[Rfam]
RNA sequence: GAUAACAUGGACAUAUGAUCUGCAUCUUUGCAUUUUCAAGUGCAAAGAUGCAGAUCAUAUGUCCAUGUUAAU
Numbered sequence: 001g002a003u004a005a006c007a008u009g010g011a012c013a014u015a016u017g018a019u020c021u022g023c024a025u026c027u028u029u030g031c032a033u034u035u036u037c038a039a040g041u042g043c044a045a046a047g048a049u050g051c052a053g054a055u056c057a058u059a060u061g062u063c064c065a066u067g068u069u070a071a072u
Base pairs, nucleotide, nucleotide: 003070004069005068006067007066008065009064010063011062012061013060014059015058016057017056018055019054020053021052022051023050024049025048026047027046028045029044030043031042032041033040034039